Rfam assigns this 67-nucleotide sequence from Alteribacillus iranensis to the family "Bacillaceae-1 RNA".
The organism belongs to Alteribacillus, within Bacteria.
Pairs were carried over by alignment from the consensus structure, which is taken from published work.
[Rfam]
RNA sequence: CUAGUUGGAAGGUCGGCUAAAACCGUCUCGUCCUGAGACAACGCCGACCUGACCCACAUCGUGUGGG
Numbered sequence: 001c002u003a004g005u006u007g008g009a010a011g012g013u014c015g016g017c018u019a020a021a022a023c024c025g026u027c028u029c030g031u032c033c034u035g036a037g038a039c040a041a042c043g044c045c046g047a048c049c050u051g052a053c054c055c056a057c058a059u060c061g062u063g064u065g066g067g
Base pairs, nucleotide, nucleotide: 011049012048013047014046015045016044017043025039026038027037028036029035053067054066055065056064057063
Rfam classes the family as a small RNA.